Shown here is a 102-nucleotide sequence from Juglans regia, a member of the family "Small nucleolar RNA Z221/R21b". For this family Rfam cites "The high diversity of snoRNAs in plants: identification and comparative study of 120 snoRNA genes from Oryza sativa" (Chen et al., Nucleic Acids Res, 2003).
RNA sequence: GGGCAGUGAUGAGGAAUAGAGAAAGUCAUGCACCACUCUGACGAUUUUUUAAAUCGAUCUGUGCUGAUAAAUUUUCUCAUACCCAUAACAUUCUCUGAGCUC
Numbered sequence: 001g002g003g004c005a006g007u008g009a010u011g012a013g014g015a016a017u018a019g020a021g022a023a024a025g026u027c028a029u030g031c032a033c034c035a036c037u038c039u040g041a042c043g044a045u046u047u048u049u050u051a052a053a054u055c056g057a058u059c060u061g062u063g064c065u066g067a068u069a070a071a072u073u074u075u076c077u078c079a080u081a082c083c084c085a086u087a088a089c090a091u092u093c094u095c096u097g098a099g100c101u102c
Stems, first nucleotide, its partner, number of pairs: 001102004

The family's consensus secondary structure was predicted with WAR. Rfam classes the family as a C/D-box small nucleolar RNA.